[Rfam]
The record is a 225-nucleotide RNA from Hevea brasiliensis, which matches "Early nodulin 40" in Rfam. It scores 106 bits against the family's covariance model. Pairs were carried over by alignment from the consensus structure, which is taken from published work. Rfam 15.1 lists 341 matches to the family in 193 species. Gene Ontology term of the family: nodulation.
RNA sequence: AUGGUGGCCUUUCAUCAAGAAUCCAUCCUUGGGUCUUGGAAAGCUUGGGGGGCUUGGAGAGAGGGAUUCCUAUCCUCCUCCAAAAUUCCAACAGUUCGCCUGUGCUUAGCCAUGACGAAUCAUCCCACAGAUGCAAGAAGAAUCUUCCCUGAAGCAAGCUCAGUGUUUGGCUAAUGCCUGGCAGACCGGCAAGUCACAGAAAGGCAACAGGCUCGUUUAUGGCUU
Numbered sequence: 001a002u003g004g005u006g007g008c009c010u011u012u013c014a015u016c017a018a019g020a021a022u023c024c025a026u027c028c029u030u031g032g033g034u035c036u037u038g039g040a041a042a043g044c045u046u047g048g049g050g051g052g053c054u055u056g057g058a059g060a061g062a063g064g065g066a067u068u069c070c071u072a073u074c075c076u077c078c079u080c081c082a083a084a085a086u087u088c089c090a091a092c093a094g095u096u097c098g099c100c101u102g103u104g105c106u107u108a109g110c111c112a113u114g115a116c117g118a119a120u121c122a123u124c125c126c127a128c129a130g131a132u133g134c135a136a137g138a139a140g141a142a143u144c145u146u147c148c149c150u151g152a153a154g155c156a157a158g159c160u161c162a163g164u165g166u167u168u169g170g171c172u173a174a175u176g177c178c179u180g181g182c183a184g185a186c187c188g189g190c191a192a193g194u195c196a197c198a199g200a201a202a203g204g205c206a207a208c209a210g211g212c213u214c215g216u217u218u219a220u221g222g223c224u225u
Stems, first nucleotide, its partner, number of pairs: 056081003094186003098182002111176003211225001214222001
By type it is a non-coding RNA gene. A reference for the family is Gultyaev and Roussis (2007), "Identification of conserved secondary structures and expansion segments in enod40 RNAs reveals new enod40 homologues in plants", Nucleic Acids Res.